[Rfam]
Rfam assigns this 428-nucleotide part of an RNA from Cystosporogenes operophterae to the family "Microsporidia small subunit ribosomal RNA". It is one of the family's seed sequences. NCBI's taxonomy places the organism under Eukaryota, Opisthokonta, Microsporidia, Pansporoblastina, Cystosporogenes. Its Rfam clan is "SSU clan". Gene Ontology terms of the family: ribosome and structural constituent of ribosome. For this family Rfam cites "Crystal structure of the ribosome at 5.5 A resolution" (Yusupov et al., Science, 2001).
Nucleotides: 428
Stems, first nucleotide, its partner, number of pairs: 004020005022418004027413005033324005039317002041286001047284003051281003056072002059070001061068001079239003089162005095156001098155002103151007113143001121136006164210003171201003176198008214236003218229004241262006264275004292314001294313003300309003336354005361407006374401004383390002
Number, partner (000 for none) and nucleotide at each position: 001000c002000a003000c004020c005019a006018g007017g008016u009000u010000g011000a012000u013000u014000c015000u016008g017007c018006c019005u020004g021000a022418c023417g024416u025415a026000g027413a028412u029411g030410c031409u032000a033324g034323u035322c036321u037320c038000u039317g040316a041286g042000a043000u044000u045000a046000a047284g048283c049282c050000a051281u052280g053279c054000a055000u056072g057071u058000u059070u060000a061068u062000g063000u064000a065000a066000u067000a068061a069000g070059g071057a072056c073000g074000a075000a076000c077000a078000g079239c080238u081237c082000a083000g084000u085000a086000g087000a088000a089162c090161u091160g092159c093158g094000a095156u096000u097000a098155u099154u100000u101000a102000g103151u104150c105149u106148g107147u108146c109145u110000g111000u112000g113143c114000a115000g116000g117000a118000u119000a120000a121136c122135u123134a124133c125132g126131u127000g128000a129000a130000a131126a132125u133124g134123u135122a136121g137000c138000u139000a140000a141000g142000a143113g144000a145109g146108g147107a148106c149105a150104g151103a152000a153000u154099a155098a156095g157000a158093c159092g160091u161090a162089g163000g164210a165209c166208u167000a168000c169000c170000a171201g172200u173199u174000a175000g176198u177197u178196g179195g180194u181193a182192g183191u184000g185000u186000a187000a188000u189000g190000g191183a192182c193181u194180a195179c196178c197177a198176a199173g200172a201171c202000g203000a204000c205000g206000a207000c208166g209165g210164u211000u212000a213000a214236c215235g216234g217000g218229g219228a220227a221226u222000c223000a224000g225000g226221g227220u228219u229218u230000u231000a232000u233000a234216c235215c236214g237081g238080a239079g240000a241262g242261g243260g244259a245258g246257c247000c248000u249000g250000a251000g252000a253000g254000a255000u256000u257246g258245c259244u260243c261242c262241c263000a264275c265274g266273u267272c268000c269000a270000u271000g272267g273266a274265c275264g276000g277000c278000a279053g280052c281051a282049g283048g284047c285000g286041c287000g288000a289000a290000a291000a292314u293000u294313g295312c296311c297000c298000a299000c300309u301308c302307u303000u304000u305000g306000c307302a308301g309300g310000a311296g312295g313294c314292a315000g316040u317039u318000a319000u320037g321036a322035g323034a324033c325000g326000u327000g328000a329000a330000g331000a332000c333000g334000a335000a336354u337353g338352c339351u340350u341000g342000g343000u344000a345000a346000a347000g348000a349000g350340a351339a352338g353337c354336a355000g356000g357000a358000g359000a360000a361407u362406u363405g364404g365403a366402g367000g368000g369000c370000a371000a372000g373000u374401u375400u376399g377398g378000u379000g380000c381000c382000a383390g384389c385000a386000g387000c388000c389384g390383c391000g392000g393000u394000a395000a396000u397000a398377c399376c400375g401374a402366c403365u404364c405363c406362a407361a408000g409031a410030g411029u412028g413027u414000g415025u416024a417023u418022g419000a420000g421000a422000g423000a424000u425000g426000c427000u428000g